The family of this 45-nucleotide sequence from Posidoniimonas polymericola is "Acido-Lenti-1 RNA". The match comes from Rfam's covariance-model search (37 bits).
[Rfam]
RNA sequence: CCCAGGGCUACGCCCUGGGCUGUGAAAGCGCGCCCCGUUGGGGCU
Numbered sequence: 001c002c003c004a005g006g007g008c009u010a011c012g013c014c015c016u017g018g019g020c021u022g023u024g025a026a027a028g029c030g031c032g033c034c035c036c037g038u039u040g041g042g043g044c045u
Stems, first nucleotide, its partner, number of pairs: 001019008032044005